[Rfam]
RNA: raiA-hairpin RNA
RNA sequence: CACGGAGUCCGGGGUUCCGGAAUGCAUACCGGAGCCUGGUGCAAAAGGGG
Numbered sequence: 001c002a003c004g005g006a007g008u009c010c011g012g013g014g015u016u017c018c019g020g021a022a023u024g025c026a027u028a029c030c031g032g033a034g035c036c037u038g039g040u041g042c043a044a045a046a047g048g049g050g
Stems, first nucleotide, its partner, number of pairs: 013036008
Dot-bracket structure: ............((((((((........))))))))..............